[Rfam]
RNA sequence: GUGGGCGGAAGCUCAUUGUAGAGGUCACGUGCCGAGUGCUCGUCACUCCACCAAUCGCCUCGGGGAAGGUCUGAGACAAGAGCCAAUGGUUGCCCUCGCAGGGCAUCACCUGAUGCGGGUGAGCGAGUGAACAGAGAGGUUGGGCCACUGUGGGCGGUCCUAGCAGGAGAAGCCGCGGCGGGGCAGCUUAACGCUCCGCCCGGCGGAUGCGACCCCCACCGGCUUGGAAUCGCUCGCGGCUGGCGAAUGAGUGCGAUGGAUGAGGUGGAGCACCGCUCCAGAACCCAAUUCAGACUACUCUCCCCCCAC
Numbered sequence: 001g002u003g004g005g006c007g008g009a010a011g012c013u014c015a016u017u018g019u020a021g022a023g024g025u026c027a028c029g030u031g032c033c034g035a036g037u038g039c040u041c042g043u044c045a046c047u048c049c050a051c052c053a054a055u056c057g058c059c060u061c062g063g064g065g066a067a068g069g070u071c072u073g074a075g076a077c078a079a080g081a082g083c084c085a086a087u088g089g090u091u092g093c094c095c096u097c098g099c100a101g102g103g104c105a106u107c108a109c110c111u112g113a114u115g116c117g118g119g120u121g122a123g124c125g126a127g128u129g130a131a132c133a134g135a136g137a138g139g140u141u142g143g144g145c146c147a148c149u150g151u152g153g154g155c156g157g158u159c160c161u162a163g164c165a166g167g168a169g170a171a172g173c174c175g176c177g178g179c180g181g182g183g184c185a186g187c188u189u190a191a192c193g194c195u196c197c198g199c200c201c202g203g204c205g206g207a208u209g210c211g212a213c214c215c216c217c218a219c220c221g222g223c224u225u226g227g228a229a230u231c232g233c234u235c236g237c238g239g240c241u242g243g244c245g246a247a248u249g250a251g252u253g254c255g256a257u258g259g260a261u262g263a264g265g266u267g268g269a270g271c272a273c274c275g276c277u278c279c280a281g282a283a284c285c286c287a288a289u290u291c292a293g294a295c296u297a298c299u300c301u302c303c304c305c306c307c308a309c
Stems, first nucleotide, its partner, number of pairs: 001309004007303003012264006021061004034048005071293005081241004091105005106122006123237007144223003266280006